A member of the RNA family "nhaA-II RNA" from Brevundimonas sp. S30B, 86 nucleotides long.
RNA sequence: AUCAGGCCCGAGCGUCAGUGCGGGCCAGGCCGGCGUCCGCAAUCGGGCGAAUCCGGUCCGACGUCCGUCGAUAACCGGGCGUCACG
Numbered sequence: 001a002u003c004a005g006g007c008c009c010g011a012g013c014g015u016c017a018g019u020g021c022g023g024g025c026c027a028g029g030c031c032g033g034c035g036u037c038c039g040c041a042a043u044c045g046g047g048c049g050a051a052u053c054c055g056g057u058c059c060g061a062c063g064u065c066c067g068u069c070g071a072u073a074a075c076c077g078g079g080c081g082u083c084a085c086g
Stems, first nucleotide, its partner, number of pairs: 005026006028058006034049006060083006
The base pairs follow the family's consensus structure, which is taken from published work. Taxonomically the source falls in Brevundimonas (Bacteria, Pseudomonadati, Alphaproteobacteria, Caulobacteraceae).